This 69-nucleotide RNA from Microcaecilia unicolor belongs to the Rfam family "mir-338 microRNA precursor family". For this family Rfam cites "Discovery of microRNAs and other small RNAs in solid tumors" (Meiri et al., Nucleic Acids Res, 2010). It scores 85 bits against the family's covariance model. Rfam 15.1 lists 1,231 matches to the family in 632 species. The source organism's lineage runs through Eukaryota, Eumetazoa, Deuterostomia, Amphibia and Microcaecilia.

[Rfam]
RNA sequence: UCUGUAACAAUAUCCUGAUGCUGACUGAGUGGGCUUUGCAGACUCCAGCAUCAGUGAUUUUGUUGUAGA
Numbered sequence: 001u002c003u004g005u006a007a008c009a010a011u012a013u014c015c016u017g018a019u020g021c022u023g024a025c026u027g028a029g030u031g032g033g034c035u036u037u038g039c040a041g042a043c044u045c046c047a048g049c050a051u052c053a054g055u056g057a058u059u060u061u062g063u064u065g066u067a068g069a
Stems, first nucleotide, its partner, number of pairs: 006064005012058003015054009